[Rfam]
Rfam assigns this 125-nucleotide RNA sequence from Rouxiella badensis to the family "RtT RNA". It scores 61 bits against the family's covariance model. For this family Rfam cites "A novel RNA product of the tyrT operon of Escherichia coli" (Bosl and Kersten, Nucleic Acids Res, 1991). The base pairs follow the family's consensus structure, which is taken from published work. The source organism's lineage runs through Bacteria, Pseudomonadati, Pseudomonadota, Enterobacterales and Rouxiella.

RNA sequence: AAAUGUGUUAAGUCGUAGGUAAGAGAACCUGUAGCAGGUUUGAGCCGAGCGGAGCGAGACGACAACGCGAACGCGUUGCCCGAAGGGUGAGGCCAGAGGCCGAAUCAAUCCCGUACGACCCACCA
Numbered sequence: 001a002a003a004u005g006u007g008u009u010a011a012g013u014c015g016u017a018g019g020u021a022a023g024a025g026a027a028c029c030u031g032u033a034g035c036a037g038g039u040u041u042g043a044g045c046c047g048a049g050c051g052g053a054g055c056g057a058g059a060c061g062a063c064a065a066c067g068c069g070a071a072c073g074c075g076u077u078g079c080c081c082g083a084a085g086g087g088u089g090a091g092g093c094c095a096g097a098g099g100c101c102g103a104a105u106c107a108a109u110c111c112c113g114u115a116c117g118a119c120c121c122a123c124c125a
Stems, first nucleotide, its partner, number of pairs: 015116003018111002020108001032089002035086001039084004046056002063078006